About this RNA:
The family of this 137-nucleotide sequence from Durio zibethinus is "MIR828 microRNA precursor family". The match comes from Rfam's covariance-model search (88 bits). The source organism's lineage runs through Eukaryota, Euphyllophyta, Magnoliopsida, eudicotyledons and Durio. On this family, see Fahlgren et al., Plant Cell 2010: "MicroRNA gene evolution in Arabidopsis lyrata and Arabidopsis thaliana".
RNA sequence: GUAAUGUUUCUUGCUCAAAUGAGUAUUCCAAUCACAGUUGCAUUUGCAUAUGCAUAUUAGUCAAUACUAUUUGUCUAUCUAUGUUUGGCUGAUGAUGCUUCUGUUUCUGAGAUGCUCAUUUGAACAAGCAAUGUUAA
Numbered sequence: 001g002u003a004a005u006g007u008u009u010c011u012u013g014c015u016c017a018a019a020u021g022a023g024u025a026u027u028c029c030a031a032u033c034a035c036a037g038u039u040g041c042a043u044u045u046g047c048a049u050a051u052g053c054a055u056a057u058u059a060g061u062c063a064a065u066a067c068u069a070u071u072u073g074u075c076u077a078u079c080u081a082u083g084u085u086u087g088g089c090u091g092a093u094g095a096u097g098c099u100u101c102u103g104u105u106u107c108u109g110a111g112a113u114g115c116u117c118a119u120u121u122g123a124a125c126a127a128g129c130a131a132u133g134u135u136a137a
Base pairs, nucleotide, nucleotide: 004134005133006132007131008130010128011127012126013125015123016122017121018120019119020118021117022116023115024114025113026112027111029109030108